[Rfam]
RNA sequence: AUUGGCAGUCAAUUUUAAAGCGUAAGGAGAUUGCAAUGUUUAUGGAUGUAGUGGUUUUUGCCGGCAUUGGGACAGUCGCCCUUAUGGUCGCUUUCUUUUUCGGUCUUUAUUAUUUUGUUAGAAGAGAAGAGCAAAACCGCAAGGAAAGCUGAUCUUUUCUAACUAGUACAGGCACGCAAGGCAAUUUGGGCAACUUAGGUUGCCUUUUUUUUAC
Numbered sequence: 001a002u003u004g005g006c007a008g009u010c011a012a013u014u015u016u017a018a019a020g021c022g023u024a025a026g027g028a029g030a031u032u033g034c035a036a037u038g039u040u041u042a043u044g045g046a047u048g049u050a051g052u053g054g055u056u057u058u059u060g061c062c063g064g065c066a067u068u069g070g071g072a073c074a075g076u077c078g079c080c081c082u083u084a085u086g087g088u089c090g091c092u093u094u095c096u097u098u099u100u101c102g103g104u105c106u107u108u109a110u111u112a113u114u115u116u117g118u119u120a121g122a123a124g125a126g127a128a129g130a131g132c133a134a135a136a137c138c139g140c141a142a143g144g145a146a147a148g149c150u151g152a153u154c155u156u157u158u159c160u161a162a163c164u165a166g167u168a169c170a171g172g173c174a175c176g177c178a179a180g181g182c183a184a185u186u187u188g189g190g191c192a193a194c195u196u197a198g199g200u201u202g203c204c205u206u207u208u209u210u211u212u213a214c
Stems, first nucleotide, its partner, number of pairs: 010102001012100001051061003078089001080087002172182002175180001188205007
RNA: PhrS
Organism: Pseudomonas sp. C27(2019)